[Rfam]
RNA sequence: UCAGAUUAAUAAACUUAACCUAGUAUAAUCGUUGGAGAAUGGCUAACGAGAUCUACCUGCACCUAAGCUGCGGACUACUAGUUUUAAGGGAUGAGUC
Numbered sequence: 001u002c003a004g005a006u007u008a009a010u011a012a013a014c015u016u017a018a019c020c021u022a023g024u025a026u027a028a029u030c031g032u033u034g035g036a037g038a039a040u041g042g043c044u045a046a047c048g049a050g051a052u053c054u055a056c057c058u059g060c061a062c063c064u065a066a067g068c069u070g071c072g073g074a075c076u077a078c079u080a081g082u083u084u085u086a087a088g089g090g091a092u093g094a095g096u097c
Stems, first nucleotide, its partner, number of pairs: 018083001020081006029049007057073005063067001
Purine riboswitch aptamer: a 97-nucleotide RNA from Weissella koreensis. Pairs were carried over by alignment from the consensus structure, which is taken from published work. The match comes from Rfam's covariance-model search (41 bits). About the family: Riboswitches are metabolite binding domains within certain messenger RNAs that serve as precision sensors for their corresponding targets. Allosteric rearrangement of mRNA structure is mediated by ligand binding, and this results in modulation of gene expression. NCBI's taxonomy places the organism under Bacteria, Bacillota, Lactobacillales, Lactobacillaceae, Weissella.